[Rfam]
RNA sequence: AGUUGAAGUGGUUUUCUUUUUGGCACAUUUGUUAAGUUUUCCAAUGGUCCUGACUCUGCCACCGAUAUAGGAGCUGGCAAAGGUUUGAAGACAAAGGUCUUUCCGACCUUUCCCAAAUCAUAGAUUGGUUCCCACAGGU
Number, nucleotide and partner (000 for none) at each position: 001a000002g000003u000004u000005g060006a000007a000008g059009u058010g057011g056012u000013u000014u000015u000016c000017u000018u000019u000020u000021u000022g050023g049024c000025a000026c046027a045028u044029u043030u000031g041032u000033u000034a000035a000036g000037u000038u000039u000040u000041c031042c000043a029044a028045u027046g026047g000048u000049c023050c022051u000052g000053a000054c000055u000056c011057u010058g009059c008060c005061a000062c000063c000064g000065a000066u000067a000068u000069a000070g132071g131072a130073g129074c128075u127076g085077g084078c083079a000080a000081a000082g000083g078084u077085u076086u000087g000088a000089a000090g000091a000092c000093a000094a000095a000096g000097g000098u124099c123100u122101u000102u120103c000104c000105g000106a000107c000108c000109u000110u000111u000112c000113c000114c000115a000116a000117a000118u000119c000120a102121u000122a100123g099124a098125u000126u000127g075128g074129u073130u072131c071132c070133c000134a000135c000136a000137g000138g000139u000
The record is a 139-nucleotide RNA sequence from Catagonus wagneri, which matches "Small nucleolar RNA SNORA12" in Rfam. Pairs were carried over by alignment from the consensus structure, which was predicted with RNAalifold. The literature on the family includes a 2005 paper in Nucleic Acids Res by Gu et al., "A novel experimental approach for systematic identification of box H/ACA snoRNAs from eukaryotes". Rfam describes the family as follows. U108 belongs to the H/ACA family of snoRNAs. The sequence is predicted to guide the pseudouridylation of the U372 residue in the 28S rRNA subunit.